[Rfam]
RNA sequence: UAACCUUAGAUUAGGUAGGAAUACCUGCUAAACUUAAGUAUAUUAAUAAGCGGAGGAAAAGAAACUAACAGGGAUUACCCUAGUAACAGCAAGUAAAGCAGUAACAGCUUAAAUUUAAAAUCUAGCCCUAGGCCUAAGUUGUAAUUUGCAGAGGAUGCUUUUAGCGUGGUGCCUUCUAAGUUCCCUGGAACGGGACGCUAUAGAGGGUAAGAGCCCUAUACAGUUAGACACUAAGCCUUUGUAAAGCUCCUUCAAUAAGUUAAGUAGUUUGGGAAUGCUGCUUAAAAUAGGAGGUAUAUUUCUUCUAAAGCUAAAUAUAGGCUAGAGACUGAUAGCGCAUAAGUAGAGUGAUUAAAAGAUGAAAAGCACUUUGAAAAGAGGGUUAAAUAGCAUGUGAAAUUAUUAAAAGGGAAGC
Numbered sequence: 001u002a003a004c005c006u007u008a009g010a011u012u013a014g015g016u017a018g019g020a021a022u023a024c025c026u027g028c029u030a031a032a033c034u035u036a037a038g039u040a041u042a043u044u045a046a047u048a049a050g051c052g053g054a055g056g057a058a059a060a061g062a063a064a065c066u067a068a069c070a071g072g073g074a075u076u077a078c079c080c081u082a083g084u085a086a087c088a089g090c091a092a093g094u095a096a097a098g099c100a101g102u103a104a105c106a107g108c109u110u111a112a113a114u115u116u117a118a119a120a121u122c123u124a125g126c127c128c129u130a131g132g133c134c135u136a137a138g139u140u141g142u143a144a145u146u147u148g149c150a151g152a153g154g155a156u157g158c159u160u161u162u163a164g165c166g167u168g169g170u171g172c173c174u175u176c177u178a179a180g181u182u183c184c185c186u187g188g189a190a191c192g193g194g195a196c197g198c199u200a201u202a203g204a205g206g207g208u209a210a211g212a213g214c215c216c217u218a219u220a221c222a223g224u225u226a227g228a229c230a231c232u233a234a235g236c237c238u239u240u241g242u243a244a245a246g247c248u249c250c251u252u253c254a255a256u257a258a259g260u261u262a263a264g265u266a267g268u269u270u271g272g273g274a275a276u277g278c279u280g281c282u283u284a285a286a287a288u289a290g291g292a293g294g295u296a297u298a299u300u301u302c303u304u305c306u307a308a309a310g311c312u313a314a315a316u317a318u319a320g321g322c323u324a325g326a327g328a329c330u331g332a333u334a335g336c337g338c339a340u341a342a343g344u345a346g347a348g349u350g351a352u353u354a355a356a357a358g359a360u361g362a363a364a365a366g367c368a369c370u371u372u373g374a375a376a377a378g379a380g381g382g383u384u385a386a387a388u389a390g391c392a393u394g395u396g397a398a399a400u401u402a403u404u405a406a407a408a409g410g411g412a413a414g415c
Base pairs, nucleotide, nucleotide: 024055025053026052027051028050029049035042036041065072066071076103077102078101086094087093106312107311108310109309112146113145114144115143118140119139121137125133126132127131151253152252153250154249155248158246159245160244161243164236165235167233168232169231172227176223177222180196182195183194184193185192199203206216207215262283263282264281265280266279267278268277289306290305291304292303293302346353347352369380370379371378372377